This 130-nucleotide sequence from Desulfoscipio gibsoniae belongs to the Rfam family "c-di-AMP riboswitch aptamer (ydaO/yuaA leader)". The pairing is the family consensus, mapped onto this sequence. The source organism's lineage runs through Bacteria, Bacillati, Eubacteriales, Desulfoscipio and Desulfoscipio gibsoniae. This family represents a conserved RNA structure found upstream of the ydaO and yuaA genes in Bacillus subtilis and related genes in other bacteria.

[Rfam]
RNA sequence: AAUAACCAAACGCUGAAUUCCUGAUCAAACGGGGAAACCAAUUUUUUGGGGUUAAUCCACAAAUAUGUGGUAGGGUUACACUUCGACCCGCAUCCGUCAGCUAACCUCGUAAGCGUUGAAGUGCUGUUGG
Number, nucleotide and partner (000 for none) at each position: 001a000002a000003u000004a000005a000006c000007c000008a000009a000010a000011c115012g114013c113014u112015g000016a000017a000018u028019u027020c000021c000022u000023g000024a000025u000026c000027a019028a018029a110030c109031g108032g107033g106034g105035a000036a000037a000038c000039c048040a047041a000042u000043u000044u000045u000046u000047u040048g039049g095050g094051g093052u000053u000054a000055a000056u000057c070058c069059a068060c067061a000062a000063a000064u000065a000066u000067g060068u059069g058070g057071u000072a000073g089074g088075g087076u086077u000078a000079c000080a000081c000082u000083u000084c000085g000086a076087c075088c074089c073090g000091c000092a000093u051094c050095c049096g000097u000098c000099a000100g000101c000102u000103a000104a000105c034106c033107u032108c031109g030110u029111a000112a014113g013114c012115g011116u000117u000118g000119a000120a000121g000122u000123g000124c000125u000126g000127u000128u000129g000130g000